[Rfam]
This 582-nucleotide part of an RNA from Halobacterium salinarum belongs to the Rfam family "Archaeal large subunit ribosomal RNA".
The base pairs follow the family's consensus structure, which is taken from published work.
Rfam links the family to the GO terms ribosome and structural constituent of ribosome.
RNA sequence: CCCCCAAGGGGAAGCGAAGACCCUAUAGAGCUUUACUGCAGGCUGUCGCUGGGACACGGUCGCUGAUGUGCAGAGUAGGUAGGAGACGUUACACAGGUACGUGCGCUAGCACGCCACCGAGUCACACAUGAAACACUACCCGUCAGUGACUGUGACCCUCACUCCGGGAGGAGGACACCGGUAGCCGGGCAGUUUGACUGGGGCGGUACGCGCUUGAAAAGAUAUCGAGCGCGCCCUAAGCCUAUCUCAGCCGAGUCAGAGACUCGGCGAAGAGUGCAAGAGCAUAAGAUAGGCUGACAGUGUCCUACACAACGAGGGACGCUGACGCGAAAGCGUGGUCUAGCGAACCAAUUAGGCUGCUUGAUGCGGCCAAUUGCUGACAGAAAAGCUACCUUAGGGAUAACAGAGUCGUCACUCGCAAGAGCACAUAUCGACCGAGUGGCUUGCUACCUCGAUGUCGGUUCCCUCCAUCCUGCCCGUGCAGAAGCGGGCAAGGGUGAGGUUGUUCGCCUAUUAAAGGAGGUCGUGAGCUGGGUUUAGACCGUCGUGAGACAGGUCGGCUGCUAUCUAUUGGGGGUGUUU
Numbered sequence: 001c002c003c004c005c006a007a008g009g010g011g012a013a014g015c016g017a018a019g020a021c022c023c024u025a026u027a028g029a030g031c032u033u034u035a036c037u038g039c040a041g042g043c044u045g046u047c048g049c050u051g052g053g054a055c056a057c058g059g060u061c062g063c064u065g066a067u068g069u070g071c072a073g074a075g076u077a078g079g080u081a082g083g084a085g086a087c088g089u090u091a092c093a094c095a096g097g098u099a100c101g102u103g104c105g106c107u108a109g110c111a112c113g114c115c116a117c118c119g120a121g122u123c124a125c126a127c128a129u130g131a132a133a134c135a136c137u138a139c140c141c142g143u144c145a146g147u148g149a150c151u152g153u154g155a156c157c158c159u160c161a162c163u164c165c166g167g168g169a170g171g172a173g174g175a176c177a178c179c180g181g182u183a184g185c186c187g188g189g190c191a192g193u194u195u196g197a198c199u200g201g202g203g204c205g206g207u208a209c210g211c212g213c214u215u216g217a218a219a220a221g222a223u224a225u226c227g228a229g230c231g232c233g234c235c236c237u238a239a240g241c242c243u244a245u246c247u248c249a250g251c252c253g254a255g256u257c258a259g260a261g262a263c264u265c266g267g268c269g270a271a272g273a274g275u276g277c278a279a280g281a282g283c284a285u286a287a288g289a290u291a292g293g294c295u296g297a298c299a300g301u302g303u304c305c306u307a308c309a310c311a312a313c314g315a316g317g318g319a320c321g322c323u324g325a326c327g328c329g330a331a332a333g334c335g336u337g338g339u340c341u342a343g344c345g346a347a348c349c350a351a352u353u354a355g356g357c358u359g360c361u362u363g364a365u366g367c368g369g370c371c372a373a374u375u376g377c378u379g380a381c382a383g384a385a386a387a388g389c390u391a392c393c394u395u396a397g398g399g400a401u402a403a404c405a406g407a408g409u410c411g412u413c414a415c416u417c418g419c420a421a422g423a424g425c426a427c428a429u430a431u432c433g434a435c436c437g438a439g440u441g442g443c444u445u446g447c448u449a450c451c452u453c454g455a456u457g458u459c460g461g462u463u464c465c466c467u468c469c470a471u472c473c474u475g476c477c478c479g480u481g482c483a484g485a486a487g488c489g490g491g492c493a494a495g496g497g498u499g500a501g502g503u504u505g506u507u508c509g510c511c512u513a514u515u516a517a518a519g520g521a522g523g524u525c526g527u528g529a530g531c532u533g534g535g536u537u538u539a540g541a542c543c544g545u546c547g548u549g550a551g552a553c554a555g556g557u558c559g560g561c562u563g564c565u566a567u568c569u570a571u572u573g574g575g576g577g578u579g580u581u582u
Stems, first nucleotide, its partner, number of pairs: 001577007010569003014564002022398004027394002029390005035193004042185007051158003055154014078140005085123003100113005162173004196209001197207003210232006235338002241293006247273002250268006274283002298324009326335001328333001349376005355371005407448003411445001412442007422432002459534001460532004464526001465523005472497002476491005500512004540558004544553003